[Rfam]
RNA sequence: GCAUCUUUGGUCCAGCGGUAGGAUAAUCGCCUUCCAAGCAACCAGUUUAAUCACUGGCUGCGAUAAGCGAUUGGCUCGGGUUCGACUCCCGGAAGAUGCA
Number, nucleotide and partner (000 for none) at each position: 001g099002c098003a097004u096005c095006u094007u093008u000009g000010g024011u023012c022013c021014a000015g000016c000017g000018g000019u000020a000021g013022g012023a011024u010025a000026a071027u070028c069029g068030c067031c000032u000033u000034c000035c000036a000037a000038g000039c000040a000041a000042c000043c000044a000045g000046u000047u000048u000049a000050a000051u000052c000053a000054c000055u000056g000057g000058c000059u000060g000061c000062g000063a000064u000065a000066a000067g030068c029069g028070a027071u026072u000073g000074g000075c000076u092077c091078g090079g089080g088081u000082u000083c000084g000085a000086c000087u000088c080089c079090c078091g077092g076093a007094a006095g005096a004097u003098g002099c001100a000